[Rfam]
RNA: Actinobacteria sRNA Ms_IGR-5
RNA sequence: ACACGAGGAAGGAGGUGGUCCAGAAGAUGAUUGGCUUUAGGACACGUGAGGUGGCUGUCCGCUAGCUGCCAGCUGCGCCAGGAUUCACCCCCUGCCAUUGGCAGCGAGCGAAUACCAGGCAGCUACCCGGCCCCCGAACCACCGGCUAAGUCCAGUCGGUACACACGGUUCGGGGGCUGUCCGUU
Numbered sequence: 001a002c003a004c005g006a007g008g009a010a011g012g013a014g015g016u017g018g019u020c021c022a023g024a025a026g027a028u029g030a031u032u033g034g035c036u037u038u039a040g041g042a043c044a045c046g047u048g049a050g051g052u053g054g055c056u057g058u059c060c061g062c063u064a065g066c067u068g069c070c071a072g073c074u075g076c077g078c079c080a081g082g083a084u085u086c087a088c089c090c091c092c093u094g095c096c097a098u099u100g101g102c103a104g105c106g107a108g109c110g111a112a113u114a115c116c117a118g119g120c121a122g123c124u125a126c127c128c129g130g131c132c133c134c135c136g137a138a139c140c141a142c143c144g145g146c147u148a149a150g151u152c153c154a155g156u157c158g159g160u161a162c163a164c165a166c167g168g169u170u171c172g173g174g175g176g177c178u179g180u181c182c183g184u185u
Stems, first nucleotide, its partner, number of pairs: 014059006060110004065105002068102005128179013142159006